Shown here is a 106-nucleotide RNA from Hymenochirus boettgeri, a member of the family "mir-223 microRNA precursor family".
The family's consensus secondary structure was predicted with RNAalifold.
Rfam links the family to the GO terms RISC complex and miRNA-mediated post-transcriptional gene silencing.
It scores 83 bits against the family's covariance model.
For this family Rfam cites "Vertebrate microRNA genes" (Lim et al., Science, 2003).
Nucleotides: 106
Base pairs, nucleotide, nucleotide: 020092021091022090023089026086028084029083030082031081032080033079034078035077036076037075038074040072041071048070049069050068051067053065054064
Number, partner (000 for none) and nucleotide at each position: 001000u002000g003000a004000u005000a006000a007000c008000c009000a010000g011000u012000a013000a014000g015000u016000g017000u018000g019000g020092c021091a022090c023089u024000g025000a026086g027000u028084g029083u030082a031081u032080u033079u034078g035077a036076c037075g038074a039000u040072c041071u042000g043000a044000u045000c046000c047000c048070g049069a050068c051067a052000c053065u054064c055000a056000a057000u058000g059000u060000g061000a062000c063000a064054g065053a066000g067051u068050g069049u070048c071041a072040g073000u074038u075037u076036g077035u078034c079033a080032a081031a082030u083029a084028u085000u086026c087000g088000a089023a090022g091021u092020g093000a094000g095000g096000c097000a098000c099000a100000g101000a102000c103000a104000u105000u106000c